[Rfam]
Rfam assigns this 75-nucleotide sequence from Myotis brandtii to the family "mir-9223 microRNA precursor family". A search with the family's covariance model found it, with a score of 72 bits. Lineage of the source: Eukaryota > Deuterostomia > Teleostomi > Euteleostomi > Myotis. The family's consensus secondary structure was predicted with RNAalifold.

RNA sequence: GGUGGUUCUCAGGUGAUGCACCCCGGAAACUGGCUCCCUCCUCUCUGGUUCCAGGUGCGUUGCCCGAGAACCACA
Numbered sequence: 001g002g003u004g005g006u007u008c009u010c011a012g013g014u015g016a017u018g019c020a021c022c023c024c025g026g027a028a029a030c031u032g033g034c035u036c037c038c039u040c041c042u043c044u045c046u047g048g049u050u051c052c053a054g055g056u057g058c059g060u061u062g063c064c065c066g067a068g069a070a071c072c073a074c075a
Stems, first nucleotide, its partner, number of pairs: 002074002005071006012064006019057004025052004030047001032045002